[Rfam]
RNA sequence: AGAUGUAGUGAUGAUUGGCAAAAUGUUCAACUGCUCUGAAAAGGUGAAUGAAAACUGCCUUUCUGAACAUCC
Numbered sequence: 001a002g003a004u005g006u007a008g009u010g011a012u013g014a015u016u017g018g019c020a021a022a023a024u025g026u027u028c029a030a031c032u033g034c035u036c037u038g039a040a041a042a043g044g045u046g047a048a049u050g051a052a053a054a055c056u057g058c059c060u061u062u063c064u065g066a067a068c069a070u071c072c
Base pairs, nucleotide, nucleotide: 002071003070004069005068006067

Overview
The record is a 72-nucleotide RNA from Monodelphis domestica, which matches "Small nucleolar RNA Z40" in Rfam. Rfam classes the family as a C/D-box small nucleolar RNA. The match comes from Rfam's covariance-model search (82 bits).